[Rfam]
A member of the RNA family "Acido-Lenti-1 RNA" from Desulfonema ishimotonii, 46 nucleotides long. Taxonomically the source falls in Desulfonema (Bacteria, Pseudomonadati, Desulfobacterales, Desulfococcaceae). The family's RNA type in Rfam is small RNA.

RNA sequence: CCCGGCAAUUCAUUGCCGGGCUAUGGUCCUUCGUCCUUCCGGGACU
Numbered sequence: 001c002c003c004g005g006c007a008a009u010u011c012a013u014u015g016c017c018g019g020g021c022u023a024u025g026g027u028c029c030u031u032c033g034u035c036c037u038u039c040c041g042g043g044a045c046u
Stems, first nucleotide, its partner, number of pairs: 001020008033045005